[Rfam]
RNA sequence: CUACAUCUACCCUGUAGAUCCGAAUUUGUAGUUGCAUCACAAGACAAAUUCGGUUCUAGAGAGGUUCGUGUGGG
Numbered sequence: 001c002u003a004c005a006u007c008u009a010c011c012c013u014g015u016a017g018a019u020c021c022g023a024a025u026u027u028g029u030a031g032u033u034g035c036a037u038c039a040c041a042a043g044a045c046a047a048a049u050u051c052g053g054u055u056c057u058a059g060a061g062a063g064g065u066u067c068g069u070g071u072g073g074g
Base pairs, nucleotide, nucleotide: 002072003071004070005069006068010064011063016057017056018055020053021052022051023050024049025048026047027046028045029044
The record is a 74-nucleotide RNA from Daphnia pulex, which matches "mir-10 microRNA precursor family" in Rfam.
It scores 55 bits against the family's covariance model.
The base pairs follow the family's consensus structure, which was predicted with PFOLD.
The literature on the family includes a 2001 paper in Cell by Ambros, "microRNAs: tiny regulators with great potential".